Rfam assigns this 178-nucleotide sequence from Thalassobium sp. R2A62 to the family "Ruegeria cis52 sRNA". A search with the family's covariance model found it, with a score of 111 bits. Taxonomically the source falls in Thalassobium (Bacteria, Pseudomonadati, Rhodobacterales, Paracoccaceae). On this family, see Rivers et al., Front Microbiol 2016: "Experimental Identification of Small Non-Coding RNAs in the Model Marine Bacterium Ruegeria pomeroyi DSS-3". Its family is annotated with regulation of gene expression in the Gene Ontology.

[Rfam]
RNA sequence: UGCGCAAGGCGUGCUUCAUAACAAUGUUAGGAAAGCUGACGCCCUUGAGCCGUGCAGUUCGGAUGUAUUGCGCGGUCAUGACUUCGGUCAUCGAGGCGCGCGUCAUUCGGGCGAUAUAGCCCAUGCCGUAGAGUGCGAUGGUUAGCACCGGCAGAAAGAAGUUGUUGAAGGUCGCAUC
Dot-bracket structure: ....((..((((.(((....(......(.((........(.(...(((..(((((.((.(((.....))).)).)......(((((.....)))))))))..)))...).)........)).))...).)).))))..))......(.((((.(.((....)).).....))))..).

Rfam classes the family as a small RNA.